A member of the RNA family "RybB RNA" from Brenneria rubrifaciens, 79 nucleotides long. The family's consensus secondary structure was predicted with PFOLD. Rfam describes the family as follows. This ncRNA was identified in a large scale screen of E. coli. The function of this short RNA is unknown. The match comes from Rfam's covariance-model search (92 bits). On this family, see Wassarman et al., Genes Dev 2001: "Identification of novel small RNAs using comparative genomics and microarrays".
[Rfam]
RNA sequence: ACUGCUUUUCUUUGAUAUCCCCAUAUUGAGGAGCCCGUCGUUCACGCCAUUGAGGUUCAAGAACGAUGGGCCUUUUCUU
Numbered sequence: 001a002c003u004g005c006u007u008u009u010c011u012u013u014g015a016u017a018u019c020c021c022c023a024u025a026u027u028g029a030g031g032a033g034c035c036c037g038u039c040g041u042u043c044a045c046g047c048c049a050u051u052g053a054g055g056u057u058c059a060a061g062a063a064c065g066a067u068g069g070g071c072c073u074u075u076u077c078u079u
Stems, first nucleotide, its partner, number of pairs: 033071011